The record is a 139-nucleotide sequence from Panicum miliaceum, which matches "Small nucleolar RNA F1/F2/snoR5a" in Rfam.
Lineage of the source: Eukaryota > Viridiplantae > Tracheophyta > Panicinae > Panicum sect. Panicum.
From the family's description: This family contains F1, F2 and snoR5a sequences, all of which are members of the the H/ACA class of snoRNA that guide the sites of modification of uridines to pseudouridines.
The family has 8 seed sequences and 325 matches in Rfam 15.1.
The family's consensus secondary structure was predicted with PFOLD.
It scores 133 bits against the family's covariance model.
Rfam links the family to the GO terms RNA processing and nucleolus.

RNA sequence: CAAUGCCAUUUGGUAUCUGAUGCCCAGUCUUUUUUGUGAUUGUUUGUCUUGAAACAUGGCAUAAAACAAGGGGGAACGGAUCUUGCGACACUGGUUGCUGAUUUAUGAGCUUCCUGUUACUAUAUGCCCGUUUACAUUG
Numbered sequence: 001c002a003a004u005g006c007c008a009u010u011u012g013g014u015a016u017c018u019g020a021u022g023c024c025c026a027g028u029c030u031u032u033u034u035u036g037u038g039a040u041u042g043u044u045u046g047u048c049u050u051g052a053a054a055c056a057u058g059g060c061a062u063a064a065a066a067c068a069a070g071g072g073g074g075a076a077c078g079g080a081u082c083u084u085g086c087g088a089c090a091c092u093g094g095u096u097g098c099u100g101a102u103u104u105a106u107g108a109g110c111u112u113c114c115u116g117u118u119a120c121u122a123u124a125u126g127c128c129c130g131u132u133u134a135c136a137u138u139g
Base pairs, nucleotide, nucleotide: 004061005060006059007058008057009056019048020047021046022045025042026041027040028039029038075132076131077130078129079128090117091116093114094113097110098109099108